[Rfam]
Nucleotides: 072
Stems, first nucleotide, its partner, number of pairs: 002072003007068002
Number, partner (000 for none) and nucleotide at each position: 001000a002072g003071c004070a005000u006000u007068u008067u009000a010000a011000u012000g013000a014000u015000g016000a017000u018000c019000a020000a021000c022000a023000a024000g025000g026000g027000a028000c029000u030000u031000a032000a033000u034000a035000c036000u037000g038000a039000u040000g041000u042000g043000u044000g045000a046000u047000g048000u049000c050000a051000c052000c053000u054000u055000u056000a057000g058000u059000u060000a061000u062000c063000c064000u065000g066000a067008a068007a069000c070004u071003g072002u